Notes:
A member of the RNA family "Small nucleolar RNA SNORA44" from Erinaceus europaeus, 132 nucleotides long. Rfam describes the family as follows. ACA44 is a member of the H/ACA class of snoRNA that guide the sites of modification of uridines to pseudouridines. The match comes from Rfam's covariance-model search (89 bits). Gene Ontology terms of the family: RNA processing and nucleolus. Clan: SNORA44 clan. Taxonomically the source falls in Erinaceus (Eukaryota, Tetrapoda, Amniota, Eulipotyphla).

[Rfam]
RNA sequence: CUGCAUGUUUCCAAGUUUAUGCCUGGUAGUAACACCAUGGGAUCUCCAACUGCAUGGAGGAAUGAACCGAAGAGACUCUGACAGCACAGGUCAGCAUAAUACCUGUAACUGUCACUCACUAUUCCUGUAUUU
Numbered sequence: 001c002u003g004c005a006u007g008u009u010u011c012c013a014a015g016u017u018u019a020u021g022c023c024u025g026g027u028a029g030u031a032a033c034a035c036c037a038u039g040g041g042a043u044c045u046c047c048a049a050c051u052g053c054a055u056g057g058a059g060g061a062a063u064g065a066a067c068c069g070a071a072g073a074g075a076c077u078c079u080g081a082c083a084g085c086a087c088a089g090g091u092c093a094g095c096a097u098a099a100u101a102c103c104u105g106u107a108a109c110u111g112u113c114a115c116u117c118a119c120u121a122u123u124c125c126u127g128u129a130u131u132u
Base pairs, nucleotide, nucleotide: 011040012039017032018031019030020029069125071123072122074120084112085111087105088104089103090102